Description:
U4atac minor spliceosomal RNA: a 127-nucleotide RNA from Propithecus coquereli. Its family is annotated with U4atac snRNP, pre-mRNA 5'-splice site binding and mRNA 5'-splice site recognition in the Gene Ontology. By type it is a spliceosomal small nuclear RNA. It scores 92 bits against the family's covariance model. Lineage of the source: Eukaryota > Craniata > Teleostomi > Eutheria > Propithecus. From the family's description: U4atac is an essential component of the minor U12-type spliceosome complex which is required for removal of the rarer class of eukaryotic introns (AT-AC, U12-type). Rfam 15.1 lists 1,648 matches to the family in 818 species.
RNA sequence: AUCAUCCUUUUCUUGGGGUAGUGCUACUGUCCAAUGAACAGGUAGUGAGGGCAGUACUGGUAAUGCCUACACAACAAUGUCUGCAUUAACUAGAGCUUUGCUCUACUUGGGCGCAAUUUUUGGUAAA
Numbered sequence: 001a002u003c004a005u006c007c008u009u010u011u012c013u014u015g016g017g018g019u020a021g022u023g024c025u026a027c028u029g030u031c032c033a034a035u036g037a038a039c040a041g042g043u044a045g046u047g048a049g050g051g052c053a054g055u056a057c058u059g060g061u062a063a064u065g066c067c068u069a070c071a072c073a074a075c076a077a078u079g080u081c082u083g084c085a086u087u088a089a090c091u092a093g094a095g096c097u098u099u100g101c102u103c104u105a106c107u108u109g110g111g112c113g114c115a116a117u118u119u120u121u122g123g124u125a126a127a
Base pairs, nucleotide, nucleotide: 006018007017008016009015022059023058026055027054028053029052030051031050032049038046039045083114084113086111087110091105092104093103094102095101096100